[Rfam]
RNA: Lysine riboswitch aptamer
Organism: Vagococcus elongatus
RNA sequence: UGAUGAGGUAGAGGUCGCGAUAAUCAAGAAGUUUGGUCGAGUUUGAGGAAACCAUGACACCAAGUGGAGGGAAAGUCGCCGAAAUGCUUGCCAGCCUCUCUGGUAAGUGUUGGGACAGUAGCGAACAACUGCUGGACUGUCUUAGUCUGUGAAGACUAAGUUGCGCUAUUUUCGUC
Numbered sequence: 001u002g003a004u005g006a007g008g009u010a011g012a013g014g015u016c017g018c019g020a021u022a023a024u025c026a027a028g029a030a031g032u033u034u035g036g037u038c039g040a041g042u043u044u045g046a047g048g049a050a051a052c053c054a055u056g057a058c059a060c061c062a063a064g065u066g067g068a069g070g071g072a073a074a075g076u077c078g079c080c081g082a083a084a085u086g087c088u089u090g091c092c093a094g095c096c097u098c099u100c101u102g103g104u105a106a107g108u109g110u111u112g113g114g115a116c117a118g119u120a121g122c123g124a125a126c127a128a129c130u131g132c133u134g135g136a137c138u139g140u141c142u143u144a145g146u147c148u149g150u151g152a153a154g155a156c157u158a159a160g161u162u163g164c165g166c167u168a169u170u171u172u173c174g175u176c
Stems, first nucleotide, its partner, number of pairs: 006171006017079005024072002031065007083111012112138002116134006141160006